[Rfam]
RNA sequence: AAACGAGGACGACCUCGCCCGCCUUGGGUUUUAUAUGUUCGGGACGACCCGA
Dot-bracket structure: ...(((((....))))).....................(((((....)))))
Numbered sequence: 001a002a003a004c005g006a007g008g009a010c011g012a013c014c015u016c017g018c019c020c021g022c023c024u025u026g027g028g029u030u031u032u033a034u035a036u037g038u039u040c041g042g043g044a045c046g047a048c049c050c051g052a
Stems, first nucleotide, its partner, number of pairs: 004017005039052005
The record is a 52-nucleotide RNA from Thalassospira mesophila, which matches "Guanidine-II riboswitch aptamer (mini-ykkC)" in Rfam. Pairs were carried over by alignment from the consensus structure, which is taken from published work. Gene Ontology term of the family: regulation of gene expression. The literature on the family includes a 2007 paper in Nucleic Acids Res by Weinberg et al., "Identification of 22 candidate structured RNAs in bacteria using the CMfinder comparative genomics pipeline". Lineage of the source: Bacteria > Pseudomonadati > Pseudomonadota > Alphaproteobacteria > Thalassospira.